[Rfam]
Bacterial RNase P class A: a 388-nucleotide sequence from Portibacter lacus.
By type it is a ribozyme.
A search with the family's covariance model found it, with a score of 204 bits.
RNA sequence: GGGGCAUAAUAUUCUAUCGCUGUAUUUUAUAAUAUGGAGGAAAGUCCGGACAACGUAGAGCAUUGCGCCUAUUAAUAAUAGGGUGGUCAGUCAGAAAAGACUGACUAACAGAAAGUGUCGCAGAAAAUAUACCGUCAUGCCUUGGUGUGAUAAGGGUGAAAACGUGAGGUAAGAGCUCACGACUUCUUUAGUAAUAAAGGAUGUAGACAAACCUCGCAAGUUGAAAUGCCAUGUACAUUUUAGACAUCCAUAGGAUGAUGUAAUGACUCGUUGCAUAUCGAAAGAAUCUAAAAGGGGUAGGCAGCUUAGAUCACGUCUUUGGCGUGACCAGAUAAAUGAUAGAACACAGAAAUGUGAACAGAAUCCGGCUUACUAUUAUGUAUUUAUU
Numbered sequence: 001g002g003g004g005c006a007u008a009a010u011a012u013u014c015u016a017u018c019g020c021u022g023u024a025u026u027u028u029a030u031a032a033u034a035u036g037g038a039g040g041a042a043a044g045u046c047c048g049g050a051c052a053a054c055g056u057a058g059a060g061c062a063u064u065g066c067g068c069c070u071a072u073u074a075a076u077a078a079u080a081g082g083g084u085g086g087u088c089a090g091u092c093a094g095a096a097a098a099g100a101c102u103g104a105c106u107a108a109c110a111g112a113a114a115g116u117g118u119c120g121c122a123g124a125a126a127a128u129a130u131a132c133c134g135u136c137a138u139g140c141c142u143u144g145g146u147g148u149g150a151u152a153a154g155g156g157u158g159a160a161a162a163c164g165u166g167a168g169g170u171a172a173g174a175g176c177u178c179a180c181g182a183c184u185u186c187u188u189u190a191g192u193a194a195u196a197a198a199g200g201a202u203g204u205a206g207a208c209a210a211a212c213c214u215c216g217c218a219a220g221u222u223g224a225a226a227u228g229c230c231a232u233g234u235a236c237a238u239u240u241u242a243g244a245c246a247u248c249c250a251u252a253g254g255a256u257g258a259u260g261u262a263a264u265g266a267c268u269c270g271u272u273g274c275a276u277a278u279c280g281a282a283a284g285a286a287u288c289u290a291a292a293a294g295g296g297g298u299a300g301g302c303a304g305c306u307u308a309g310a311u312c313a314c315g316u317c318u319u320u321g322g323c324g325u326g327a328c329c330a331g332a333u334a335a336a337u338g339a340u341a342g343a344a345c346a347c348a349g350a351a352a353u354g355u356g357a358a359c360a361g362a363a364u365c366c367g368g369c370u371u372a373c374u375a376u377u378a379u380g381u382a383u384u385u386a387u388u
Base pairs, nucleotide, nucleotide: 001384002383004381005380006379007378008377009376010375012344013343014342015341016340017339018338020037021036022035023034024033025032026031042371043370044369046368047367048366049365050364051223052222053221054220063219064218065217066216067215068082069081070080071079072078083109084107085106086105087104088103089102090101091100092099110214111213115212116211117208118207119206132155133154134151135150136149137148138147139146140145163181164180165179166178167177168176182204184201185200186199187198188197189196190195227303228302229301230300238293239292240291241290242289272286274284311327312326313325314324315323316322317321
Background: Rfam describes the family as follows. Ribonuclease P (RNase P) is a ubiquitous endoribonuclease, found in archaea, bacteria and eukarya as well as chloroplasts and mitochondria. The organism belongs to Portibacter, within Bacteria.